Rfam assigns this 62-nucleotide sequence from Candidatus Brocadiaceae bacterium S225 to the family "Fluoride riboswitch aptamer (crcB RNA motif)".
Taxonomically the source falls in Candidatus Brocadiaceae (Bacteria, Pseudomonadati, Candidatus Brocadiia, Candidatus Brocadiales).
RNA sequence: UGUCAAUAGAGCGAUGGAGUUCGCUAAAGCGCCGCAUUGCGGAUGAUAACUCCUAUUGGAGG
Numbered sequence: 001u002g003u004c005a006a007u008a009g010a011g012c013g014a015u016g017g018a019g020u021u022c023g024c025u026a027a028a029g030c031g032c033c034g035c036a037u038u039g040c041g042g043a044u045g046a047u048a049a050c051u052c053c054u055a056u057u058g059g060a061g062g
Base pairs, nucleotide, nucleotide: 010025011024012023013022016053017052018051019050020049021048032042033041034040